[Rfam]
RNA sequence: UGUUGGCCACUAACAAUUGGAUCUUUGGCAGUUUUGGCCCCCAAGGCCACUUUUGACUUAGUCUUCGCAGACGUGGCACCCACAAAGGUCGACACAUGGCACCUCACUUAAGGGAUGUGGGUGCCACGUCAGCGAAGACUAAGUCAAAAGUGGCAUUGGGGGCCAAAACUGCCAAAUAUCCAAUACAUAGAGGGCUGUUU
Numbered sequence: 001u002g003u004u005g006g007c008c009a010c011u012a013a014c015a016a017u018u019g020g021a022u023c024u025u026u027g028g029c030a031g032u033u034u035u036g037g038c039c040c041c042c043a044a045g046g047c048c049a050c051u052u053u054u055g056a057c058u059u060a061g062u063c064u065u066c067g068c069a070g071a072c073g074u075g076g077c078a079c080c081c082a083c084a085a086a087g088g089u090c091g092a093c094a095c096a097u098g099g100c101a102c103c104u105c106a107c108u109u110a111a112g113g114g115a116u117g118u119g120g121g122u123g124c125c126a127c128g129u130c131a132g133c134g135a136a137g138a139c140u141a142a143g144u145c146a147a148a149a150g151u152g153g154c155a156u157u158g159g160g161g162g163c164c165a166a167a168a169c170u171g172c173c174a175a176a177u178a179u180c181c182a183a184u185a186c187a188u189a190g191a192g193g194g195c196u197g198u199u200u
Base pairs, nucleotide, nucleotide: 002199004197005196006195007194008193011189012188016184017183018182019181020180021179022178024176025175026174027173028172029171030170031169032168033167034166035165036164037163038162039161040160041159042158043157044156071129072128074126075125076124077123078122079121080120081119
Rfam assigns this 200-nucleotide RNA from Medicago truncatula to the family "MIR2619 microRNA precursor family". The base pairs follow the family's consensus structure, which was predicted with RNAalifold.